This 182-nucleotide RNA sequence from Nocardioides sp. zg-1228 belongs to the Rfam family "Actinobacteria sRNA Ms_IGR-5". It is annotated as a small RNA. On this family, see Li et al., RNA 2013: "Identification of small RNAs in Mycobacterium smegmatis using heterologous Hfq".

[Rfam]
RNA sequence: ACACAGAAGGGAGGUGAUCCGAGGAAUGAGUUCUUUUCGGAUGAGUGAGGUGGCUGCCAGCUAGGCAGCCCGCAUCGCCGACAGCUGCCGGCGAAUCCACUGCAGCCACCCGACCCGCAGGCUCCCGGUGUCAUCCCCCGGGGCCCCUCCCCGAGGGGCAGCAGGCCUGCGGGUCGCUGCAU
Numbered sequence: 001a002c003a004c005a006g007a008a009g010g011g012a013g014g015u016g017a018u019c020c021g022a023g024g025a026a027u028g029a030g031u032u033c034u035u036u037u038c039g040g041a042u043g044a045g046u047g048a049g050g051u052g053g054c055u056g057c058c059a060g061c062u063a064g065g066c067a068g069c070c071c072g073c074a075u076c077g078c079c080g081a082c083a084g085c086u087g088c089c090g091g092c093g094a095a096u097c098c099a100c101u102g103c104a105g106c107c108a109c110c111c112g113a114c115c116c117g118c119a120g121g122c123u124c125c126c127g128g129u130g131u132c133a134u135c136c137c138c139c140g141g142g143g144c145c146c147c148u149c150c151c152c153g154a155g156g157g158g159c160a161g162c163a164g165g166c167c168u169g170c171g172g173g174u175c176g177c178u179g180c181a182u
Base pairs, nucleotide, nucleotide: 013058014057015056016055018053060092061091062090064089065088066087068085069084111176112175113174114173115172116171117170118169119168120167121166122165123164125142126141128139130137